[Rfam]
The record is a 140-nucleotide RNA from Rhizobium sp. NFR07, which matches "Alphaproteobacterial sRNA ar35" in Rfam.
RNA sequence: UUAGAAUGGGUACGAGCUGAAUGAAUUCGCCGCUCGCAGUGCUUCGUCGCCAUCUGGCUUUGACCACGGAUGUACCGGCACUGGUAGAGAUGCGGCGGUGAGGAAAGUCGGUGCGAUUUCGCCCCGUUGCUUUUUUGUUU
Numbered sequence: 001u002u003a004g005a006a007u008g009g010g011u012a013c014g015a016g017c018u019g020a021a022u023g024a025a026u027u028c029g030c031c032g033c034u035c036g037c038a039g040u041g042c043u044u045c046g047u048c049g050c051c052a053u054c055u056g057g058c059u060u061u062g063a064c065c066a067c068g069g070a071u072g073u074a075c076c077g078g079c080a081c082u083g084g085u086a087g088a089g090a091u092g093c094g095g096c097g098g099u100g101a102g103g104a105a106a107g108u109c110g111g112u113g114c115g116a117u118u119u120c121g122c123c124c125c126g127u128u129g130c131u132u133u134u135u136u137g138u139u140u
Base pairs, nucleotide, nucleotide: 003043004042005040007038014035015034016033017032046096047095048094049093050092052091055086056085058083061080062079064078065077098139101136102135103134104133105132106131107130108129109126110125111124113122114121115120
Description:
The base pairs follow the family's consensus structure. Rfam 15.1 lists 266 matches to the family in 153 species. By type it is a small RNA.